[Rfam]
RNA sequence: CGGUCUGCAGUUCACCGAGGCAUCGCCGCCCGUUCCGGGUUCGCUAAACCUGCCA
Numbered sequence: 001c002g003g004u005c006u007g008c009a010g011u012u013c014a015c016c017g018a019g020g021c022a023u024c025g026c027c028g029c030c031c032g033u034u035c036c037g038g039g040u041u042c043g044c045u046a047a048a049c050c051u052g053c054c055a
Base pairs, nucleotide, nucleotide: 001017002016003015004014028040029039030038031037
RNA: COG3860 RNA
Organism: Microvirga thermotolerans